[Rfam]
RNA sequence: GUGAUUGCGGCUCCCCGUCGAUCCCACCACCGCCACCAUUACUGCUACUGUUCAGCAGGUGCUGUUGGUGGUGAUGGUGAUAGUCUGGUGGGGGCGGUGGGGCGGCUG
Numbered sequence: 001g002u003g004a005u006u007g008c009g010g011c012u013c014c015c016c017g018u019c020g021a022u023c024c025c026a027c028c029a030c031c032g033c034c035a036c037c038a039u040u041a042c043u044g045c046u047a048c049u050g051u052u053c054a055g056c057a058g059g060u061g062c063u064g065u066u067g068g069u070g071g072u073g074a075u076g077g078u079g080a081u082a083g084u085c086u087g088g089u090g091g092g093g094g095c096g097g098u099g100g101g102g103c104g105g106c107u108g
Stems, first nucleotide, its partner, number of pairs: 007106002010103005015097004022093007029084002032081001034079012053067006